Notes: The record is a 158-nucleotide RNA sequence from Glycine max, which matches "MIR4371 microRNA precursor family" in Rfam. The family's consensus secondary structure was predicted with RNAalifold. NCBI's taxonomy places the organism under Eukaryota, Tracheophyta, rosids, Phaseoleae, Glycine subgen. Soja. Rfam links the family to the GO terms miRNA-mediated post-transcriptional gene silencing and RISC complex. It scores 131 bits against the family's covariance model. The family is grouped with related families in Rfam's "MIR4387 microRNA precursor clan".

RNA sequence: CCGUUAAGUGAUGACGUGACAGACAAAGUAUCAUGUCAUCAUACCUUAUGACUUACACCUCAUUGCCACAUCAUCACCUUCAGUGACGUGACAAUGAUGUGUCAAUGAUUACGUUUGACGACAUGACAUUUUGUCUGUCACAUCAUCACUUAACGGAA
Numbered sequence: 001c002c003g004u005u006a007a008g009u010g011a012u013g014a015c016g017u018g019a020c021a022g023a024c025a026a027a028g029u030a031u032c033a034u035g036u037c038a039u040c041a042u043a044c045c046u047u048a049u050g051a052c053u054u055a056c057a058c059c060u061c062a063u064u065g066c067c068a069c070a071u072c073a074u075c076a077c078c079u080u081c082a083g084u085g086a087c088g089u090g091a092c093a094a095u096g097a098u099g100u101g102u103c104a105a106u107g108a109u110u111a112c113g114u115u116u117g118a119c120g121a122c123a124u125g126a127c128a129u130u131u132u133g134u135c136u137g138u139c140a141c142a143u144c145a146u147c148a149c150u151u152a153a154c155g156g157a158a
Stems, first nucleotide, its partner, number of pairs: 001156014016141014031126007039118003043114002046111001048109002051106001055102004071086004